[Rfam]
Group II catalytic intron D1-D4-1: a 93-nucleotide RNA from Pelagicoccus enzymogenes. The pairing is the family consensus, mapped onto this sequence. The organism belongs to Pelagicoccus, within Bacteria. Group II introns are found in rRNA, tRNA and mRNA of organelles in fungi, plants and protists, and also in mRNA in bacteria.

RNA sequence: CGGUUCGUCCAGCGAUGGACGCAUUGAGGGGCGAGGAGUCAGCCGAGGUCGUAGUAGUCGCGUGAAACGAGCCGGGAGUAGCUGCCGACGGAU
Numbered sequence: 001c002g003g004u005u006c007g008u009c010c011a012g013c014g015a016u017g018g019a020c021g022c023a024u025u026g027a028g029g030g031g032c033g034a035g036g037a038g039u040c041a042g043c044c045g046a047g048g049u050c051g052u053a054g055u056a057g058u059c060g061c062g063u064g065a066a067a068c069g070a071g072c073c074g075g076g077a078g079u080a081g082c083u084g085c086c087g088a089c090g091g092a093u
Base pairs, nucleotide, nucleotide: 001026002025004023006021007020008019009018010017011016039046040045048093049092050091057086059084070083071082072081